[Rfam]
RNA sequence: GUUUUGCGUAAGCGAUUGCAGUGAUAUCCUUUUAUUUUUUGGAAUAUUUUGAGAUCCCCAGUUUAGAGCCCUUAAUAAACAAUACAACCGUUCCAUAAAAAUAAAAGAUAUAACGGAAAGCGCGACCCUUU
Numbered sequence: 001g002u003u004u005u006g007c008g009u010a011a012g013c014g015a016u017u018g019c020a021g022u023g024a025u026a027u028c029c030u031u032u033u034a035u036u037u038u039u040u041g042g043a044a045u046a047u048u049u050u051g052a053g054a055u056c057c058c059c060a061g062u063u064u065a066g067a068g069c070c071c072u073u074a075a076u077a078a079a080c081a082a083u084a085c086a087a088c089c090g091u092u093c094c095a096u097a098a099a100a101a102u103a104a105a106a107g108a109u110a111u112a113a114c115g116g117a118a119a120g121c122g123c124g125a126c127c128c129u130u131u
Base pairs, nucleotide, nucleotide: 012123013122014121016119017118021114022113026109027108028107032104033103034102035101036100037099038098039097
This 131-nucleotide sequence from Arenibacter sp. NBRC 103722 belongs to the Rfam family "Flavo-1 RNA". The family's RNA type in Rfam is small RNA. It scores 55 bits against the family's covariance model.